[Rfam]
RNA: mir-4659 microRNA precursor family
RNA sequence: CUGUUGACGUUGCCAUGUCUAAGAAGAAAAUUUUUCUCCAAAGUUUUCUUCUUAGACAUGGCAGCUUCAGCAG
Numbered sequence: 001c002u003g004u005u006g007a008c009g010u011u012g013c014c015a016u017g018u019c020u021a022a023g024a025a026g027a028a029a030a031u032u033u034u035u036c037u038c039c040a041a042a043g044u045u046u047u048c049u050u051c052u053u054a055g056a057c058a059u060g061g062c063a064g065c066u067u068c069a070g071c072a073g
Stems, first nucleotide, its partner, number of pairs: 001073007011063024
Dot-bracket structure: (((((((...((((((((((((((((((((((((.....))))))))))))))))))))))))...)))))))